[Rfam]
RNA sequence: UGGUAGAUGCACCUUAAUAAAUUACAGCCCUUAGCUUAACGCUAUGGGCUUUUUUAU
Dot-bracket structure: .(((......))).............((((.((((.....)))).))))........
The family of this 57-nucleotide sequence from Nostoc punctiforme is "Nitrogen stress-induced RNA 1". NCBI's taxonomy places the organism under Bacteria, Cyanobacteriota, Nostocales, Nostoc, Nostoc punctiforme. The family has 17 seed sequences and 962 matches in Rfam 15.1. On this family, see Ionescu et al., J Mol Biol 2010: "Heterocyst-specific transcription of NsiR1, a non-coding RNA encoded in a tandem array of direct repeats in cyanobacteria".